Shown here is a 107-nucleotide sequence from Nyssa sinensis, a member of the family "Small nucleolar RNA snoR97". Rfam classes the family as an H/ACA-box small nucleolar RNA. Gene Ontology terms of the family: RNA processing and nucleolus. The family has 7 seed sequences and 862 matches in Rfam 15.1.
[Rfam]
RNA sequence: AGUAAAUGGUGGGUUAAGAGUCUGAAAAACUCAUAAAUUGUGUGCUGCCAUCAGCUUCAUCUCUGGCAUAUUUUACGGGGUUGGAGUUAAAUAACGGCACUACAUUC
Numbered sequence: 001a002g003u004a005a006a007u008g009g010u011g012g013g014u015u016a017a018g019a020g021u022c023u024g025a026a027a028a029a030c031u032c033a034u035a036a037a038u039u040g041u042g043u044g045c046u047g048c049c050a051u052c053a054g055c056u057u058c059a060u061c062u063c064u065g066g067c068a069u070a071u072u073u074u075a076c077g078g079g080g081u082u083g084g085a086g087u088u089a090a091a092u093a094a095c096g097g098c099a100c101u102a103c104a105u106u107c
Base pairs, nucleotide, nucleotide: 042100043099044098045097046096047095053088054087055086056085057084058083060080061079062078063077